Rfam assigns this 90-nucleotide RNA sequence from Effusibacillus lacus to the family "c-di-GMP-I riboswitch aptamer". Pairs were carried over by alignment from the consensus structure, which is taken from published work. Lineage of the source: Bacteria > Bacillota > Caryophanales > Alicyclobacillaceae > Effusibacillus. A search with the family's covariance model found it, with a score of 77 bits.
[Rfam]
RNA sequence: UGUAGAAAAAGGCAAAAUCUCCGAAAGGAGAUGACGCAAAGCUGCGGGUCUAAGGAGGGCACUGCUUUCUAUGACAGCCGGGCCGCCACA
Numbered sequence: 001u002g003u004a005g006a007a008a009a010a011g012g013c014a015a016a017a018u019c020u021c022c023g024a025a026a027g028g029a030g031a032u033g034a035c036g037c038a039a040a041g042c043u044g045c046g047g048g049u050c051u052a053a054g055g056a057g058g059g060c061a062c063u064g065c066u067u068u069c070u071a072u073g074a075c076a077g078c079c080g081g082g083c084c085g086c087c088a089c090a
Base pairs, nucleotide, nucleotide: 012037013036017032018031019030020029021028022027041083042082043081045080046079047078048075049074050073055069056068057067058066